[Rfam]
RNA sequence: CAAACCAUACAGUGAUGUAUGUCUGAACUAUCAGAAGUCAGCAGAUGUCAUAGUACCAUGCUAAACGCGUUAGCGUGGGAAGGAC
Numbered sequence: 001c002a003a004a005c006c007a008u009a010c011a012g013u014g015a016u017g018u019a020u021g022u023c024u025g026a027a028c029u030a031u032c033a034g035a036a037g038u039c040a041g042c043a044g045a046u047g048u049c050a051u052a053g054u055a056c057c058a059u060g061c062u063a064a065a066c067g068c069g070u071u072a073g074c075g076u077g078g079g080a081a082g083g084a085c
Base pairs, nucleotide, nucleotide: 001025002024006021007020008019009018010017011016037046038045039044047085048084049083056078057077058076059075060074061073
Group II catalytic intron D1-D4-1: an 85-nucleotide RNA from Clostridium estertheticum. For this family Rfam cites "The ins and outs of group II introns" (Bonen and Vogel, Trends Genet, 2001). The organism belongs to Clostridium, within Bacteria. Group II introns are found in rRNA, tRNA and mRNA of organelles in fungi, plants and protists, and also in mRNA in bacteria. It scores 71 bits against the family's covariance model.